[Rfam]
RNA sequence: UUUGAGAUUACAUGCUUCUUUAUAUCCCCAUAUUAAUAAGAUUGCUAUGGAAUGUAAGGAAGUGUGUGGUUUCAAG
Numbered sequence: 001u002u003u004g005a006g007a008u009u010a011c012a013u014g015c016u017u018c019u020u021u022a023u024a025u026c027c028c029c030a031u032a033u034u035a036a037u038a039a040g041a042u043u044g045c046u047a048u049g050g051a052a053u054g055u056a057a058g059g060a061a062g063u064g065u066g067u068g069g070u071u072u073c074a075a076g
Stems, first nucleotide, its partner, number of pairs: 007070019028050005
RNA: mir-1 microRNA precursor family